A member of the RNA family "Small nucleolar RNA snoR74" from Phoenix dactylifera, 131 nucleotides long.
For this family Rfam cites "Experimental RNomics: identification of 140 candidates for small non-messenger RNAs in the plant Arabidopsis thaliana" (Marker et al., Curr Biol, 2002).
NCBI's taxonomy places the organism under Eukaryota, Tracheophyta, Mesangiospermae, Phoeniceae, Phoenix.
The match comes from Rfam's covariance-model search (113 bits).
Rfam 15.1 lists 1,404 matches to the family in 223 species.
Gene Ontology terms of the family: RNA processing and nucleolus.

[Rfam]
RNA sequence: AAAAAAGCAGGGGCCUGUUUCCUUCAUAAAUGGGCCUCUCGUAAACUUUAGGGAGAUCAUAUACAUUGUUAUUGGGUGAACCUUUGGAGACUUUGUUUAUGACAAAAGGUUCAGUAAACAAUGGAACAUUG
Numbered sequence: 001a002a003a004a005a006a007g008c009a010g011g012g013g014c015c016u017g018u019u020u021c022c023u024u025c026a027u028a029a030a031u032g033g034g035c036c037u038c039u040c041g042u043a044a045a046c047u048u049u050a051g052g053g054a055g056a057u058c059a060u061a062u063a064c065a066u067u068g069u070u071a072u073u074g075g076g077u078g079a080a081c082c083u084u085u086g087g088a089g090a091c092u093u094u095g096u097u098u099a100u101g102a103c104a105a106a107a108g109g110u111u112c113a114g115u116a117a118a119c120a121a122u123g124g125a126a127c128a129u130u131g
Stems, first nucleotide, its partner, number of pairs: 005048003011037002014034004064123007077113007